The family of this 134-nucleotide RNA from Nomascus leucogenys is "U8 small nucleolar RNA".
Gene Ontology terms of the family: RNA processing and nucleolus.
The literature on the family includes a 1997 paper in Mol Cell Biol by Peculis, "The sequence of the 5' end of the U8 small nucleolar RNA is critical for 5.8S and 28S rRNA maturation".
The match comes from Rfam's covariance-model search (117 bits).
[Rfam]
RNA sequence: GCAUCAGGUGGGAUAAUUCUUACCUAUUUCUCCUUUUGGAGGGCAGAAAGAAUAGGCUGAUUGGAGAUGCAUGAAACGUGGUUAAUGUCUCUGGGUAAUCAGGACUUGCAACACCCCGAUUACUCCUUUCUGAU
Numbered sequence: 001g002c003a004u005c006a007g008g009u010g011g012g013a014u015a016a017u018u019c020u021u022a023c024c025u026a027u028u029u030c031u032c033c034u035u036u037u038g039g040a041g042g043g044c045a046g047a048a049a050g051a052a053u054a055g056g057c058u059g060a061u062u063g064g065a066g067a068u069g070c071a072u073g074a075a076a077c078g079u080g081g082u083u084a085a086u087g088u089c090u091c092u093g094g095g096u097a098a099u100c101a102g103g104a105c106u107u108g109c110a111a112c113a114c115c116c117c118g119a120u121u122a123c124u125c126c127u128u129u130c131u132g133a134u
Base pairs, nucleotide, nucleotide: 024046025045028043029042030041031040032039033038073091074090076088077087078086079084095123096122097121098120099119100118102116103115